[Rfam]
RNA: RAGATH-18 RNA
RNA sequence: CCUUUGGAGAACUAUACAAACAAGAGUAGUAAUUAUAUAUUAUGAAAUUGGGUUCGUUGAAUAAGGAA
Numbered sequence: 001c002c003u004u005u006g007g008a009g010a011a012c013u014a015u016a017c018a019a020a021c022a023a024g025a026g027u028a029g030u031a032a033u034u035a036u037a038u039a040u041u042a043u044g045a046a047a048u049u050g051g052g053u054u055c056g057u058u059g060a061a062u063a064a065g066g067a068a
Stems, first nucleotide, its partner, number of pairs: 001066004009055005021050003029043003035040001